[Rfam]
A member of the RNA family "MIR4371 microRNA precursor family" from Glycine max, 153 nucleotides long. Taxonomically the source falls in Glycine subgen. Soja (Eukaryota, Tracheophyta, Spermatophyta, Gunneridae). It scores 119 bits against the family's covariance model.
RNA sequence: CCGUUAAGUGAUGACGUGGUAGACAGAGUGUCACUUCAUCACGACCAAUCACUGACAUGUCAGUGCCACAUCAUUGAAGGUGAUGGCAUGACAAUGAGUGUGACAAGGCGUGAUGAUGUGAUACUUUGUCUGUCACGUCAUUACUUAACGGAA
Numbered sequence: 001c002c003g004u005u006a007a008g009u010g011a012u013g014a015c016g017u018g019g020u021a022g023a024c025a026g027a028g029u030g031u032c033a034c035u036u037c038a039u040c041a042c043g044a045c046c047a048a049u050c051a052c053u054g055a056c057a058u059g060u061c062a063g064u065g066c067c068a069c070a071u072c073a074u075u076g077a078a079g080g081u082g083a084u085g086g087c088a089u090g091a092c093a094a095u096g097a098g099u100g101u102g103a104c105a106a107g108g109c110g111u112g113a114u115g116a117u118g119u120g121a122u123a124c125u126u127u128g129u130c131u132g133u134c135a136c137g138u139c140a141u142u143a144c145u146u147a148a149c150g151g152a153a
Stems, first nucleotide, its partner, number of pairs: 001151034036116008045107001049103004071086004